[Rfam]
RNA sequence: AAAGCCUCAGCUGCUUGCUGCGCUUGUGGCGAUGUGCUAUACUGACGACAUCGUUGUAUAUCCUCUGAAUCGGAAACGUGUCUAAAUGGGGUUCGAUUCCCCACACUUCCACCAAGAAACGCUUUAGAUGAGGCGUUUGUUGAUGGGGGUGACCUGGAUUCGAAGACGGGCGGAAGUGCAGGCGGCAACGCGGGUUGGGACUACCCGGCAAGGCUUAGGUCUUGUAGAACAGAACGACAUGACAAUUGCCAAUGAAAGCAAUUUCCGCCUCGCUGCUUAAGCAGGCCGGGGUCUAAAGGCACCCUGUAACCUAAGCCUUUGUGAGCCGCAGCAAUGCGGCUUGCCG
Numbered sequence: 001a002a003a004g005c006c007u008c009a010g011c012u013g014c015u016u017g018c019u020g021c022g023c024u025u026g027u028g029g030c031g032a033u034g035u036g037c038u039a040u041a042c043u044g045a046c047g048a049c050a051u052c053g054u055u056g057u058a059u060a061u062c063c064u065c066u067g068a069a070u071c072g073g074a075a076a077c078g079u080g081u082c083u084a085a086a087u088g089g090g091g092u093u094c095g096a097u098u099c100c101c102c103a104c105a106c107u108u109c110c111a112c113c114a115a116g117a118a119a120c121g122c123u124u125u126a127g128a129u130g131a132g133g134c135g136u137u138u139g140u141u142g143a144u145g146g147g148g149g150u151g152a153c154c155u156g157g158a159u160u161c162g163a164a165g166a167c168g169g170g171c172g173g174a175a176g177u178g179c180a181g182g183c184g185g186c187a188a189c190g191c192g193g194g195u196u197g198g199g200a201c202u203a204c205c206c207g208g209c210a211a212g213g214c215u216u217a218g219g220u221c222u223u224g225u226a227g228a229a230c231a232g233a234a235c236g237a238c239a240u241g242a243c244a245a246u247u248g249c250c251a252a253u254g255a256a257a258g259c260a261a262u263u264u265c266c267g268c269c270u271c272g273c274u275g276c277u278u279a280a281g282c283a284g285g286c287c288g289g290g291g292u293c294u295a296a297a298g299g300c301a302c303c304c305u306g307u308a309a310c311c312u313a314a315g316c317c318u319u320u321g322u323g324a325g326c327c328g329c330a331g332c333a334a335u336g337c338g339g340c341u342u343g344c345c346g
Stems, first nucleotide, its partner, number of pairs: 052190005062185002065182002069177001071176001077170001079168005087103005104151007191224003289304004296319004322343009

A member of the RNA family "Betaproteobacteria transfer-messenger RNA" from Variovorax sp. PBL-E5, 346 nucleotides long. The family's RNA type in Rfam is non-coding RNA gene. The organism belongs to Variovorax, within Bacteria. Its Rfam clan is "tRNA clan". Rfam links the family to the GO term RNA catabolic process. It scores 110 bits against the family's covariance model. About the family: Bacterial tmRNA, also known as 10Sa RNA or SsrA, is named for its dual tRNA and mRNA-like properties. Its role is to liberate the mRNA from a stalled ribosome.